[Rfam]
RNA sequence: ACAGGUUGGAGGCCAUAGCAGAAGCACUCAUGGCACGGCUGUGUGAGAUUCCAAUGAAUCUGUGAAUUCUGUU
Numbered sequence: 001a002c003a004g005g006u007u008g009g010a011g012g013c014c015a016u017a018g019c020a021g022a023a024g025c026a027c028u029c030a031u032g033g034c035a036c037g038g039c040u041g042u043g044u045g046a047g048a049u050u051c052c053a054a055u056g057a058a059u060c061u062g063u064g065a066a067u068u069c070u071g072u073u
Stems, first nucleotide, its partner, number of pairs: 011040004017073007024036001046061006
Notes
This 73-nucleotide RNA from Crocodylus porosus belongs to the Rfam family "Mammalian CPEB3 ribozyme". The family's consensus secondary structure is taken from published work. From the family's description: The mammalian CPEB3 ribozyme is a self cleaving RNA located in the second intron of the CPEB3 gene which belongs to a family of genes regulating messenger RNA polyadenylation. This ribozyme is highly conserved and found only in mammals. The CPEB3 ribozyme is structurally and biochemically related to the human hepatitis delta virus (HDV) ribozyme and the HDV ribozyme is proposed to have arisen from the human transcriptome. There is currently only one other known self cleaving ribozyme in mammals, the CoTC motif.